This 130-nucleotide sequence from Acerihabitans arboris belongs to the Rfam family "RtT RNA". A search with the family's covariance model found it, with a score of 139 bits. Taxonomically the source falls in Acerihabitans (Bacteria, Pseudomonadati, Pseudomonadota, Pectobacteriaceae). Rfam 15.1 lists 651 matches to the family in 204 species. By type it is a cis-regulatory element. The family's consensus secondary structure is taken from published work. The literature on the family includes a 1991 paper in Nucleic Acids Res by Bosl and Kersten, "A novel RNA product of the tyrT operon of Escherichia coli". This family represents a bacterial cis-regulatory element known as RtT RNA. The exact function of RtT is unknown although it is thought that it may be involved in changing the cellular response in relation to amino acid starvation.
RNA sequence: AAACUUCCCGUUGGGGGAAGGAUGAGAACCUUCGACCAAGGUUCGAGCCGAGCGCAGCGAGACAACGAUGCGCCAGCAUCGGCCCGCAGGGUGAGGAGCGAAGCGACGAAUAAUCCUUCCCCCACCACCA
Numbered sequence: 001a002a003a004c005u006u007c008c009c010g011u012u013g014g015g016g017g018a019a020g021g022a023u024g025a026g027a028a029c030c031u032u033c034g035a036c037c038a039a040g041g042u043u044c045g046a047g048c049c050g051a052g053c054g055c056a057g058c059g060a061g062a063c064a065a066c067g068a069u070g071c072g073c074c075a076g077c078a079u080c081g082g083c084c085c086g087c088a089g090g091g092u093g094a095g096g097a098g099c100g101a102a103g104c105g106a107c108g109a110a111u112a113a114u115c116c117u118u119c120c121c122c123c124a125c126c127a128c129c130a
Base pairs, nucleotide, nucleotide: 015121016120017119018118019117020116021115023113033093034092036091037090042088044086045085049059050058066081067080068079069078070077071076